A member of the RNA family "Small nucleolar RNA SNORD116" from Ictidomys tridecemlineatus, 83 nucleotides long. The family's RNA type in Rfam is C/D-box small nucleolar RNA.

[Rfam]
RNA sequence: GGACCAAUGAUGACUUACAAAAAUGAAUCUUGUUGGAUUCUGAACAAAAUGAGUGACCAAACCACUUCUGUGAGCUGAGGUCU
Numbered sequence: 001g002g003a004c005c006a007a008u009g010a011u012g013a014c015u016u017a018c019a020a021a022a023a024u025g026a027a028u029c030u031u032g033u034u035g036g037a038u039u040c041u042g043a044a045c046a047a048a049a050u051g052a053g054u055g056a057c058c059a060a061a062c063c064a065c066u067u068c069u070g071u072g073a074g075c076u077g078a079g080g081u082c083u
Stems, first nucleotide, its partner, number of pairs: 001083005027054002030052002033047003
Gene Ontology terms of the family: nucleolus and RNA processing. Taxonomically the source falls in Ictidomys (Eukaryota, Teleostomi, Glires, Rodentia).